A member of the RNA family "c-di-GMP-I riboswitch aptamer" from Anaerostipes rhamnosivorans, 85 nucleotides long. Rfam's curators write: GEMM was predicted in a large-scale screen for bacterial structured RNA regulatory elements. NCBI's taxonomy places the organism under Bacteria, Bacillati, Clostridia, Lachnospirales, Anaerostipes. Pairs were carried over by alignment from the consensus structure, which is taken from published work.

[Rfam]
RNA sequence: UUUAUAAAUGGGCAAAACCGGGGAAAUCCGGUGACGCAAAGCCAAGGGCCUAAACCAUGUUAUGGUAUGGCAGCCGGUUGCUCCA
Dot-bracket structure: ...........((...((((((....))))))...))..((((..(((((....((((...))))...)))..))))))......
It scores 75 bits against the family's covariance model. Gene Ontology term of the family: cyclic-di-GMP binding.